[Rfam]
Annotation: The record is a 72-nucleotide sequence from Chanos chanos, which matches "mir-153 microRNA precursor family" in Rfam. The literature on the family includes a 2009 paper in Mol Reprod Dev by Tesfaye et al., "Identification and expression profiling of microRNAs during bovine oocyte maturation using heterologous approach". It scores 75 bits against the family's covariance model. Rfam links the family to the GO terms RISC complex and miRNA-mediated post-transcriptional gene silencing. The source organism's lineage runs through Eukaryota, Clupeocephala, Gonorynchiformes, Chanidae and Chanos.
RNA sequence: CCCUGUGUCAUUUUCGUGAUUUGCAGCUCGUAGUUUGGCUCCAGUUGCAUAGUCACAAAAAUGAUCAUUGGU
Numbered sequence: 001c002c003c004u005g006u007g008u009c010a011u012u013u014u015c016g017u018g019a020u021u022u023g024c025a026g027c028u029c030g031u032a033g034u035u036u037g038g039c040u041c042c043a044g045u046u047g048c049a050u051a052g053u054c055a056c057a058a059a060a061a062u063g064a065u066c067a068u069u070g071g072u
Stems, first nucleotide, its partner, number of pairs: 002071002005068003008064007016056005022049007